[Rfam]
RNA sequence: GUUCUUUAUGUUUUUGAUUGUUGCUCAGAAAGCCGUGAUGUUAGUACAGGCUUUCGAGCGAUAAUCACAAUCAGAAAGGGG
Numbered sequence: 001g002u003u004c005u006u007u008a009u010g011u012u013u014u015u016g017a018u019u020g021u022u023g024c025u026c027a028g029a030a031a032g033c034c035g036u037g038a039u040g041u042u043a044g045u046a047c048a049g050g051c052u053u054u055c056g057a058g059c060g061a062u063a064a065u066c067a068c069a070a071u072c073a074g075a076a077a078g079g080g081g
Base pairs, nucleotide, nucleotide: 002080003079004078005077006076007075012070013069015067016066017065018064020062021061022060023059024058025057026056028055029054030053031052032051033050034049
RNA: mir-315 microRNA precursor family